This 71-nucleotide RNA from Neopipo cinnamomea belongs to the Rfam family "mir-34 microRNA precursor family".
Clan: mir-34 clan.
For this family Rfam cites "Vertebrate microRNA genes" (Lim et al., Science, 2003).
Pairs were carried over by alignment from the consensus structure, which was predicted with RNAalifold.
Its family is annotated with miRNA-mediated post-transcriptional gene silencing and RISC complex in the Gene Ontology.
Taxonomically the source falls in Neopipo (Eukaryota, Bilateria, Sauria, Neognathae).

[Rfam]
RNA sequence: GUUUUGAUGGCAGUGAAAUUAGUGAUUGUGGAGCAGUGGGUACAAUCAGCUAAUUGCACUGCCUACAAACC
Numbered sequence: 001g002u003u004u005u006g007a008u009g010g011c012a013g014u015g016a017a018a019u020u021a022g023u024g025a026u027u028g029u030g031g032a033g034c035a036g037u038g039g040g041u042a043c044a045a046u047c048a049g050c051u052a053a054u055u056g057c058a059c060u061g062c063c064u065a066c067a068a069a070c071c
Stems, first nucleotide, its partner, number of pairs: 003069004009063002012060004017055006023048008